[Rfam]
RNA sequence: AACGAAAAAUAAAUACGAACUCGUAUAAUCACGGGGAUAAGGCCCGUAAGUUUCUACCAGACUACCGUAAAUAGUCUGACUACGAGUGAGAUCAUCGGAUAC
Numbered sequence: 001a002a003c004g005a006a007a008a009a010u011a012a013a014u015a016c017g018a019a020c021u022c023g024u025a026u027a028a029u030c031a032c033g034g035g036g037a038u039a040a041g042g043c044c045c046g047u048a049a050g051u052u053u054c055u056a057c058c059a060g061a062c063u064a065c066c067g068u069a070a071a072u073a074g075u076c077u078g079a080c081u082a083c084g085a086g087u088g089a090g091a092u093c094a095u096c097g098g099a100u101a102c
Stems, first nucleotide, its partner, number of pairs: 019087007029049001031047005058078007
Dot-bracket structure: ..................(((((((...(.(((((.......))))).)........(((((((.......)))))))..)))))))...............
The record is a 102-nucleotide sequence from Aneurinibacillus soli, which matches "Purine riboswitch aptamer" in Rfam.